A member of the RNA family "c-di-GMP-I riboswitch aptamer" from Thioalkalivibrio sulfidiphilus, 84 nucleotides long. Clan: c-di-GMP_I riboswitch clan. Pairs were carried over by alignment from the consensus structure, which is taken from published work.
RNA sequence: UCAUCGAAAGGGCAUACCCGACCGAAAGGCGGGGACGCAAAACCACCGGUCUACGGCUUCGGCCAUGACAGCGGAGUUACCGAA
Numbered sequence: 001u002c003a004u005c006g007a008a009a010g011g012g013c014a015u016a017c018c019c020g021a022c023c024g025a026a027a028g029g030c031g032g033g034g035a036c037g038c039a040a041a042a043c044c045a046c047c048g049g050u051c052u053a054c055g056g057c058u059u060c061g062g063c064c065a066u067g068a069c070a071g072c073g074g075a076g077u078u079a080c081c082g083a084a
Stems, first nucleotide, its partner, number of pairs: 012038002017033004022029002041078003046074003049069003056063002